[Rfam]
RNA sequence: AGUUGUUAGUCUACGUGGACCGACAAAGACAGAUUCUUUGAGGGAGCUAAGCUCAACGUAGUUCUAACAGUUUUUUAAUUAGAGAGCAGAUCUCUGAUGAAUAACCAACGGAAAAAGGCGAAAAACACGCCUUUCAAUAUGCUGAAAC
Numbered sequence: 001a002g003u004u005g006u007u008a009g010u011c012u013a014c015g016u017g018g019a020c021c022g023a024c025a026a027a028g029a030c031a032g033a034u035u036c037u038u039u040g041a042g043g044g045a046g047c048u049a050a051g052c053u054c055a056a057c058g059u060a061g062u063u064c065u066a067a068c069a070g071u072u073u074u075u076u077a078a079u080u081a082g083a084g085a086g087c088a089g090a091u092c093u094c095u096g097a098u099g100a101a102u103a104a105c106c107a108a109c110g111g112a113a114a115a116a117g118g119c120g121a122a123a124a125a126c127a128c129g130c131c132u133u134u135c136a137a138u139a140u141g142c143u144g145a146a147a148c
Base pairs, nucleotide, nucleotide: 005068006067007066008065009064011061012060013059014058015057016056020043021042024040025039026038027037028036029035044054045053046052047051070105071104072103074101075100076099077098083093084092085091111135112134115133116132117131118130119129120128
This 148-nucleotide sequence from Orthoflavivirus denguei belongs to the Rfam family "Flavivirus 5' UTR". The base pairs follow the family's consensus structure, which was predicted with LocARNA. Gene Ontology term of the family: viral RNA genome replication. The organism belongs to Dengue virus, within Viruses. Clan: Flavivirus 5' UTR clan. The family's RNA type in Rfam is cis-regulatory element. Rfam's curators put it in the seed alignment.